[Rfam]
Nucleotides: 084
Stems, first nucleotide, its partner, number of pairs: 002025002004022005010017002051080003054076005060071002
Number, partner (000 for none) and nucleotide at each position: 001000u002025g003024g004022g005021c006020a007019g008018u009000a010017u011016c012000u013000u014000a015000g016011g017010a018008a019007c020006u021005g022004c023000a024003c025002c026000u027000u028000u029000u030000a031000a032000a033000g034000a035000a036000a037000a038000u039000c040000c041000a042000u043000a044000g045000c046000a047000c048000g049000u050000u051080c052079u053078g054076c055075c056074u057073u058072g059000a060071u061070c062000c063000a064000u065000a066000a067000u068000g069000c070061g071060a072058c073057a074056g075055g076054g077000a078053c079052a080051g081000a082000g083000g084000a
A member of the RNA family "pan motif" from Jeotgalibacillus sp. S-D1, 84 nucleotides long. Pairs were carried over by alignment from the consensus structure, which is taken from published work. The family's RNA type in Rfam is cis-regulatory element. A search with the family's covariance model found it, with a score of 57 bits.